[Rfam]
Annotation:
The record is a 59-nucleotide RNA from Moorena producens, which matches "Nitrogen stress-induced RNA 1" in Rfam. The sequence is in the family's curated seed alignment. The pairing is the family consensus, mapped onto this sequence.
RNA sequence: UGGUAGAUGCACCCUGAUUGACACCCCCGGUUCACUUUGGUGAGCUGGGGAUUUUUUUU
Numbered sequence: 001u002g003g004u005a006g007a008u009g010c011a012c013c014c015u016g017a018u019u020g021a022c023a024c025c026c027c028c029g030g031u032u033c034a035c036u037u038u039g040g041u042g043a044g045c046u047g048g049g050g051a052u053u054u055u056u057u058u059u
Stems, first nucleotide, its partner, number of pairs: 002013003025050010